The family of this 63-nucleotide RNA sequence from Acyrthosiphon pisum is "mir-8/mir-141/mir-200 microRNA precursor family".
The family's consensus secondary structure was predicted with RNAalifold.
Rfam 15.1 lists 2,669 matches to the family in 883 species.
Taxonomically the source falls in Acyrthosiphon (Eukaryota, Ecdysozoa, Pancrustacea, Altocrustacea).

Nucleotides: 063
Base pairs, nucleotide, nucleotide: 001061002060003059004058005056006055007054008053009052012050013049014048015047016046018044019043020042021041022040023039
Number, partner (000 for none) and nucleotide at each position: 001061c002060g003059u004058c005056u006055u007054a008053c009052u010000u011000g012050g013049g014048c015047a016046g017000g018044a019043u020042u021041a022040g023039a024000g025000u026000g027000a028000c029000a030000a031000u032000u033000g034000a035000u036000a037000u038000g039023u040022c041021u042020a043019a044018u045000a046016c047015u048014g049013u050012c051000a052009g053008g054007u055006a056005a057000u058004g059003a060002u061001g062000u063000c